[Rfam]
RNA sequence: UCAGUAAGUCAGCUUAAUUCAGCAAUUUGGGUGGUUAACUCCACUCAGACUCCUGAAGCGGAGGAACCAAAUUAUUGGGGCUUAUCUUCGUGAAUUCAACGAUUUGAACAACCCGAAGAGGGGCAUCUCUCAGCCCUCGCCCGUCAGCUAACUCCGUCAGCAUUGAGAGAGGGCUG
Numbered sequence: 001u002c003a004g005u006a007a008g009u010c011a012g013c014u015u016a017a018u019u020c021a022g023c024a025a026u027u028u029g030g031g032u033g034g035u036u037a038a039c040u041c042c043a044c045u046c047a048g049a050c051u052c053c054u055g056a057a058g059c060g061g062a063g064g065a066a067c068c069a070a071a072u073u074a075u076u077g078g079g080g081c082u083u084a085u086c087u088u089c090g091u092g093a094a095u096u097c098a099a100c101g102a103u104u105u106g107a108a109c110a111a112c113c114c115g116a117a118g119a120g121g122g123g124c125a126u127c128u129c130u131c132a133g134c135c136c137u138c139g140c141c142c143g144u145c146a147g148c149u150a151a152c153u154c155c156g157u158c159a160g161c162a163u164u165g166a167g168a169g170a171g172g173g174c175u176g
Stems, first nucleotide, its partner, number of pairs: 012161003018057005058157006068077002078142003086118004121136004
c-di-AMP riboswitch aptamer (ydaO/yuaA leader): a 176-nucleotide sequence from Phormidesmis priestleyi. Its family is annotated with regulation of gene expression and cyclic-di-AMP binding in the Gene Ontology.